[Rfam]
RNA sequence: CCCAGGGCUCCGCCCCGGGCUAACAUCCGACGGCCUGACAGGCCU
Numbered sequence: 001c002c003c004a005g006g007g008c009u010c011c012g013c014c015c016c017g018g019g020c021u022a023a024c025a026u027c028c029g030a031c032g033g034c035c036u037g038a039c040a041g042g043c044c045u
Stems, first nucleotide, its partner, number of pairs: 001019003005015004032044005
The record is a 45-nucleotide RNA from Planctomycetes bacterium MalM25, which matches "Acido-Lenti-1 RNA" in Rfam. Lineage of the source: Bacteria > Pseudomonadati > Planctomycetota. It is annotated as a small RNA.